[Rfam]
The record is a 241-nucleotide RNA sequence from Butyrivibrio sp. Su6, which matches "Bacterial large signal recognition particle RNA" in Rfam. Gene Ontology terms of the family: signal recognition particle, plasma membrane targeting and SRP-dependent cotranslational protein targeting to membrane, signal sequence recognition. It scores 95 bits against the family's covariance model. Clan: SRP clan. The organism belongs to Butyrivibrio, within Bacteria.
RNA sequence: UCAAGAUUUAAUAGAUCAAAAUUGACAAUAUACAAAAAACAAAGUAUAGUAAUAAAGCGGUUUUGUGAAGGGUGCAUGUAGCAGUCCUUUUGUGCAGAAUCGGGUCUUAUGCAAUGGAAAUCUACGAACCGUGUCAGGUCGGGAACGAAGCAGCACUAAGUAGAACCUUCCAUGUGUUGUAAGGUUGCCUUAUUCUGCCUGAAGUCAACGUGCAUGCGUCCUUCACAGAACCGCUUCUUUU
Numbered sequence: 001u002c003a004a005g006a007u008u009u010a011a012u013a014g015a016u017c018a019a020a021a022u023u024g025a026c027a028a029u030a031u032a033c034a035a036a037a038a039a040c041a042a043a044g045u046a047u048a049g050u051a052a053u054a055a056a057g058c059g060g061u062u063u064u065g066u067g068a069a070g071g072g073u074g075c076a077u078g079u080a081g082c083a084g085u086c087c088u089u090u091u092g093u094g095c096a097g098a099a100u101c102g103g104g105u106c107u108u109a110u111g112c113a114a115u116g117g118a119a120a121u122c123u124a125c126g127a128a129c130c131g132u133g134u135c136a137g138g139u140c141g142g143g144a145a146c147g148a149a150g151c152a153g154c155a156c157u158a159a160g161u162a163g164a165a166c167c168u169u170c171c172a173u174g175u176g177u178u179g180u181a182a183g184g185u186u187g188c189c190u191u192a193u194u195c196u197g198c199c200u201g202a203a204g205u206c207a208a209c210g211u212g213c214a215u216g217c218g219u220c221c222u223u224c225a226c227a228g229a230a231c232c233g234c235u236u237c238u239u240u241u
Stems, first nucleotide, its partner, number of pairs: 003239004008052003012025001014023003029048005057234013071220010084209002087204004092199001097195004102190004106183006112174002115172005121164005131156004139148003